flg-Rhizobiales RNA: a 137-nucleotide RNA from Rhodopseudomonas sp.
By type it is a cis-regulatory element.
The source organism's lineage runs through Bacteria, Pseudomonadota, Alphaproteobacteria, Nitrobacteraceae and Rhodopseudomonas.

[Rfam]
RNA sequence: CGAGCCGCAGCUUGGGAGAGCGUCGCGGCUCACCACGAUCCGCGGUCGGCCUGGGAGGGCCAAGCGCGGUUCAUUAAGGGGAGAACCACCGAUGGAGAAUAUGCUUCUCGUCGGAUUGUCACGGCAGAUGGUGCUCG
Numbered sequence: 001c002g003a004g005c006c007g008c009a010g011c012u013u014g015g016g017a018g019a020g021c022g023u024c025g026c027g028g029c030u031c032a033c034c035a036c037g038a039u040c041c042g043c044g045g046u047c048g049g050c051c052u053g054g055g056a057g058g059g060c061c062a063a064g065c066g067c068g069g070u071u072c073a074u075u076a077a078g079g080g081g082a083g084a085a086c087c088a089c090c091g092a093u094g095g096a097g098a099a100u101a102u103g104c105u106u107c108u109c110g111u112c113g114g115a116u117u118g119u120c121a122c123g124g125c126a127g128a129u130g131g132u133g134c135u136c137g
Base pairs, nucleotide, nucleotide: 002031003030004029005028006027007026008025009023010021011020012019013018037072038071040069041068042067048061049060050059051058052057089114090113091112092111093110095109096108097107098106099105